[Rfam]
RNA sequence: GUGUCGGCGCGGGGGUUUCUGUCGCUUCCUCCCGCUUCAUCGGCCUCCGAAGCGGAGCGACGUCAGGAGGCCGAACGAGAC
Numbered sequence: 001g002u003g004u005c006g007g008c009g010c011g012g013g014g015g016u017u018u019c020u021g022u023c024g025c026u027u028c029c030u031c032c033c034g035c036u037u038c039a040u041c042g043g044c045c046u047c048c049g050a051a052g053c054g055g056a057g058c059g060a061c062g063u064c065a066g067g068a069g070g071c072c073g074a075a076c077g078a079g080a081c
Stems, first nucleotide, its partner, number of pairs: 001081002004078003010034004041073008

A member of the RNA family "CyVA-1 RNA", 81 nucleotides long. The family's RNA type in Rfam is small RNA. Rfam's curators write: Cyanobacteria, Acidobacteria (1 example), Verrucomicrobia (1 example).